[Rfam]
RNA sequence: AUGUCAGGAAAAGGAUUCUGUUGUCGGUCCCGCACCCAGCUUCACAAAAUGGUGGACGCAGAAUCUGGCCUCUGCUUGUG
Dot-bracket structure: (((.((((....((((((((.((((.(..((...................))).))))))))))))....))))..))).
The record is an 80-nucleotide RNA from Vicugna pacos, which matches "mir-541 microRNA precursor family" in Rfam. For this family Rfam cites "MicroRNA transcriptome in the newborn mouse ovaries determined by massive parallel sequencing" (Ahn et al., Mol Hum Reprod, 2010). The base pairs follow the family's consensus structure, which was predicted with RNAalifold.